[Rfam]
RNA sequence: GCCGUUGCCAUGGGGUGCCGCCCACGCGGCUGAGAUGAUACCCAUCGACCUGAACUGGGUAAUGCCAGCGGAGGGACGGCGCAUGAUCGACAC
Numbered sequence: 001g002c003c004g005u006u007g008c009c010a011u012g013g014g015g016u017g018c019c020g021c022c023c024a025c026g027c028g029g030c031u032g033a034g035a036u037g038a039u040a041c042c043c044a045u046c047g048a049c050c051u052g053a054a055c056u057g058g059g060u061a062a063u064g065c066c067a068g069c070g071g072a073g074g075g076a077c078g079g080c081g082c083a084u085g086a087u088c089g090a091c092a093c
Stems, first nucleotide, its partner, number of pairs: 006081004011044004016038001017030005049074003055068004
Dot-bracket structure: .....((((.((((.((((((....))))).......)..))))....(((...((((......))))...)))...))))............

The family of this 93-nucleotide sequence from Labilithrix luteola is "TPP riboswitch aptamer (THI element)". Rfam describes the family as follows. Vitamin B(1) in its active form thiamin pyrophosphate (TPP) is an essential coenzyme that is synthesised by coupling of pyrimidine and thiazole moieties in bacteria. Taxonomically the source falls in Labilithrix (Bacteria, Myxococcota, Polyangia, Labilitrichaceae).